Shown here is an 82-nucleotide RNA sequence from Arsenophonus endosymbiont of Aleurodicus floccissimus, a member of the family "CyaR/Rye RNA". From the family's description: This sRNA was originally identified in a large scale screen of E. coli. It is annotated as a small RNA. For this family Rfam cites "Identification of novel small RNAs using comparative genomics and microarrays" (Wassarman et al., Genes Dev, 2001). The family's consensus secondary structure was predicted with PFOLD.
[Rfam]
RNA sequence: CAGUGAAAAAUGUAGAAUUAAAAAUUAUAAGACUAGAAACCACCUUCUUUGCUAACUCAAUCUCCCUUGAGCUAGCUUUUUC
Numbered sequence: 001c002a003g004u005g006a007a008a009a010a011u012g013u014a015g016a017a018u019u020a021a022a023a024a025u026u027a028u029a030a031g032a033c034u035a036g037a038a039a040c041c042a043c044c045u046u047c048u049u050u051g052c053u054a055a056c057u058c059a060a061u062c063u064c065c066c067u068u069g070a071g072c073u074a075g076c077u078u079u080u081u082c
Stems, first nucleotide, its partner, number of pairs: 035048004051076004056071005